[Rfam]
RNA sequence: GAGAGUUCUCGGGGCAGGGUGAGAUUCCCUACCGGCGGUGAUACCGAUUCUUUCGGUCGAGCCCGCGAGCGCCCGCCACAGCAGCGGGGUCAGCAGAUCCGGUGUGAUUCCGGAGCCGACGGUCAUAGUCCGGAUGUGAGAGAACCCGC
Numbered sequence: 001g002a003g004a005g006u007u008c009u010c011g012g013g014g015c016a017g018g019g020u021g022a023g024a025u026u027c028c029c030u031a032c033c034g035g036c037g038g039u040g041a042u043a044c045c046g047a048u049u050c051u052u053u054c055g056g057u058c059g060a061g062c063c064c065g066c067g068a069g070c071g072c073c074c075g076c077c078a079c080a081g082c083a084g085c086g087g088g089g090u091c092a093g094c095a096g097a098u099c100c101g102g103u104g105u106g107a108u109u110c111c112g113g114a115g116c117c118g119a120c121g122g123u124c125a126u127a128g129u130c131c132g133g134a135u136g137u138g139a140g141a142g143a144a145c146c147c148g149c
Base pairs, nucleotide, nucleotide: 003147005145006144007143008142009141010140017029018028019027031129032128033118034117035066036065037064038063061116062115069094070093098114099113100112101111102110120132121131122130
RNA: FMN riboswitch aptamer (RFN element)